Overview: The family of this 73-nucleotide sequence from Pongo pygmaeus is "mir-1915 microRNA precursor family". The family's consensus secondary structure was predicted with RNAalifold. Rfam's curators put it in the seed alignment.
RNA sequence: AGAGGCCUCACCUUGACUUGCUGCCCGGGCCGUGCACCCGUGGGCCCCAGGGCGACGCGGCGGGGGCGGCCCU
Dot-bracket structure: ((.((((.(.(((((.(.((.((((((((((..((....)).)))))..))))).)).).)))))).))))))